[Rfam]
Rfam assigns this 118-nucleotide sequence from Paenochrobactrum gallinarii to the family "Rhizobiales sRNA Atu_C8".
It scores 103 bits against the family's covariance model.
Lineage of the source: Bacteria > Pseudomonadati > Alphaproteobacteria > Hyphomicrobiales > Paenochrobactrum.
The family's RNA type in Rfam is small RNA.
RNA sequence: GAAAAAGUUUAUUAUUCUUGUGGUGGUAAGGCGCAUGGGCAGGGUGGUGUAACCAUCCGGCGAAAGCUCCCAUGCGCGAAAGACAGGCUCCCUAAAGGGGGCCUUUUUUAUUAUCAAA
Numbered sequence: 001g002a003a004a005a006a007g008u009u010u011a012u013u014a015u016u017c018u019u020g021u022g023g024u025g026g027u028a029a030g031g032c033g034c035a036u037g038g039g040c041a042g043g044g045u046g047g048u049g050u051a052a053c054c055a056u057c058c059g060g061c062g063a064a065a066g067c068u069c070c071c072a073u074g075c076g077c078g079a080a081a082g083a084c085a086g087g088c089u090c091c092c093u094a095a096a097g098g099g100g101g102c103c104u105u106u107u108u109u110a111u112u113a114u115c116a117a118a
Stems, first nucleotide, its partner, number of pairs: 009023001026114004031077009042058006060067002083105001085104007